[Rfam]
RNA sequence: ACCUACCAGAAAAUACUUUAAGGCAUUCGUUUAACUAUAAUAUUAAUAAAAAGGUCGACAUUAUGCUAAGUUUCGAAAGAAACGGUGUUAAUAUGGUAGUGCAUCACAGUAAUGUGCUUGCGGGAG
Numbered sequence: 001a002c003c004u005a006c007c008a009g010a011a012a013a014u015a016c017u018u019u020a021a022g023g024c025a026u027u028c029g030u031u032u033a034a035c036u037a038u039a040a041u042a043u044u045a046a047u048a049a050a051a052a053g054g055u056c057g058a059c060a061u062u063a064u065g066c067u068a069a070g071u072u073u074c075g076a077a078a079g080a081a082a083c084g085g086u087g088u089u090a091a092u093a094u095g096g097u098a099g100u101g102c103a104u105c106a107c108a109g110u111a112a113u114g115u116g117c118u119u120g121c122g123g124g125a126g
Stems, first nucleotide, its partner, number of pairs: 003099006013088004022067005071078002101121003105116004